Background:
Shown here is a 137-nucleotide RNA from Vibrio sp. V28_P6S34P95, a member of the family "Molybdenum/Tungsten riboswitch aptamer (Moco RNA motif)". The organism belongs to Vibrio, within Bacteria.

RNA sequence: UAGUUGCCAUAACUCCGAGCUUAGUGUUGCUAAGUCUAUAAUGAUAAGUGACAUAAGCCAGUGACUUCACGUCACAAGGGCCUAACUGGAAAUGGUUAUGCCUCCCGUAUUUGGAAAGGUGUUCCGUGGCGCAACAA
Numbered sequence: 001u002a003g004u005u006g007c008c009a010u011a012a013c014u015c016c017g018a019g020c021u022u023a024g025u026g027u028u029g030c031u032a033a034g035u036c037u038a039u040a041a042u043g044a045u046a047a048g049u050g051a052c053a054u055a056a057g058c059c060a061g062u063g064a065c066u067u068c069a070c071g072u073c074a075c076a077a078g079g080g081c082c083u084a085a086c087u088g089g090a091a092a093u094g095g096u097u098a099u100g101c102c103u104c105c106c107g108u109a110u111u112u113g114g115a116a117a118g119g120u121g122u123u124c125c126g127u128g129g130c131g132c133a134a135c136a137a
Base pairs, nucleotide, nucleotide: 011123012122013121015119016118019058020057021056022055023054025053026052027051028050029049030048034045035044036043061075062074063073064072065071078103079102080101081100083098084097085096086095087094088093104114105113